[Rfam]
RNA sequence: ACAUUGCGAUGAUGCAAAAGGUUGCUGAUCUUAAAUUCAGGGAAUUUUUGCUGAGAAUGUCCGGUUAAAAAUCGGGCGACUA
Numbered sequence: 001a002c003a004u005u006g007c008g009a010u011g012a013u014g015c016a017a018a019a020g021g022u023u024g025c026u027g028a029u030c031u032u033a034a035a036u037u038c039a040g041g042g043a044a045u046u047u048u049u050g051c052u053g054a055g056a057a058u059g060u061c062c063g064g065u066u067a068a069a070a071a072u073c074g075g076g077c078g079a080c081u082a
Stems, first nucleotide, its partner, number of pairs: 014051003018048004025040004059080003064077003